[Rfam]
RNA sequence: UAAAAGAGAAUAAUAUUUCCGUAGACAGUGGGUGCGUAAGCAUAACGUAAAACAACCUGCCGAGGGUUCCAAUACAAGUUUGUAAUGGUCUUUUCGUAUCUACGGAAAGACCUUUCUUAUUUAUAUA
Dot-bracket structure: ...........................((((((((....)).............))))))..........................((((((((((......))))))))))...............
This 127-nucleotide sequence from Clostridium fungisolvens belongs to the Rfam family "Ribosomal protein L10 leader". The match comes from Rfam's covariance-model search (69 bits). For this family Rfam cites "Diverse mechanisms for regulating ribosomal protein synthesis in Escherichia coli" (Zengel and Lindahl, Prog Nucleic Acid Res Mol Biol, 1994). The source organism's lineage runs through Bacteria, Bacillati, Bacillota, Clostridiaceae and Clostridium.